[Rfam]
RNA sequence: ACGCAUCAUCCAUUCACUACGGAUCGUCCGGCACGUACCUGCCGGUGAAGGAGCAGUA
Numbered sequence: 001a002c003g004c005a006u007c008a009u010c011c012a013u014u015c016a017c018u019a020c021g022g023a024u025c026g027u028c029c030g031g032c033a034c035g036u037a038c039c040u041g042c043c044g045g046u047g048a049a050g051g052a053g054c055a056g057u058a
Base pairs, nucleotide, nucleotide: 010051011050013049014048015047016046028045029044030043031042032041033040
The record is a 58-nucleotide RNA sequence from Agromyces agglutinans, which matches "msiK RNA" in Rfam. It is annotated as a cis-regulatory element. The base pairs follow the family's consensus structure, which is taken from published work. The organism belongs to Agromyces, within Bacteria.